[Rfam]
Small nucleolar RNA snoR100: a 106-nucleotide RNA sequence from Papaver nudicaule. Rfam 15.1 lists 1,851 matches to the family in 220 species. A search with the family's covariance model found it, with a score of 65 bits. The base pairs follow the family's consensus structure, which was predicted with WAR.

RNA sequence: CAAUGAGGGGAGCAUGGUACUGUGUACAGAAAUCAAAUUUUUGGUACUAACGUCUGCUUGCUCUGAUGCUUCUGGCUCUGAUUUUGCGGUCCUGGGCAUCAAGGUU
Numbered sequence: 001c002a003a004u005g006a007g008g009g010g011a012g013c014a015u016g017g018u019a020c021u022g023u024g025u026a027c028a029g030a031a032a033u034c035a036a037a038u039u040u041u042u043g044g045u046a047c048u049a050a051c052g053u054c055u056g057c058u059u060g061c062u063c064u065g066a067u068g069c070u071u072c073u074g075g076c077u078c079u080g081a082u083u084u085u086g087c088g089g090u091c092c093u094g095g096g097c098a099u100c101a102a103g104g105u106u
Stems, first nucleotide, its partner, number of pairs: 012025004043093002046090002052082003056076003